[Rfam]
A member of the RNA family "pemK RNA", 65 nucleotides long. By type it is a cis-regulatory element. The family's consensus secondary structure is taken from published work.
RNA sequence: ACAAUGAUACUUCCCGUAAUUCGCGAUCCGGCCAUAAGGAAGGCGGGAGGGUUAAAUUCCAAGGG
Dot-bracket structure: ...........((.(.......).).(((.(((........))).))).((.......)).)...
Numbered sequence: 001a002c003a004a005u006g007a008u009a010c011u012u013c014c015c016g017u018a019a020u021u022c023g024c025g026a027u028c029c030g031g032c033c034a035u036a037a038g039g040a041a042g043g044c045g046g047g048a049g050g051g052u053u054a055a056a057u058u059c060c061a062a063g064g065g
Stems, first nucleotide, its partner, number of pairs: 012062001013025001015023001027048003031044003050060002